The family of this 96-nucleotide sequence from Nicotiana sylvestris is "MIR6152 microRNA precursor family". A search with the family's covariance model found it, with a score of 91 bits. Rfam links the family to the GO terms RISC complex and miRNA-mediated post-transcriptional gene silencing. The base pairs follow the family's consensus structure, which was predicted with RNAalifold.
RNA sequence: UGGACAGGUUAUUGUAUUCGACCGUAUUCACGGUGUGAAACAAGGGACUACACUGUUUUUAAAUGGAAAGUGAAUCAGUUAACAUAAUAGACUCCU
Number, nucleotide and partner (000 for none) at each position: 001u000002g095003g094004a093005c000006a000007g000008g000009u090010u089011a088012u087013u086014g085015u084016a000017u082018u081019c000020g080021a079022c000023c000024g076025u000026a075027u074028u073029c072030a071031c070032g000033g000034u065035g064036u063037g059038a058039a057040a056041c055042a054043a000044g000045g000046g000047a000048c000049u000050a000051c000052a000053c000054u042055g041056u040057u039058u038059u037060u000061a000062a000063a036064u035065g034066g000067a000068a000069a000070g031071u030072g029073a028074a027075u026076c024077a000078g000079u021080u020081a018082a017083c000084a015085u014086a013087a012088u011089a010090g009091a000092c000093u004094c003095c002096u000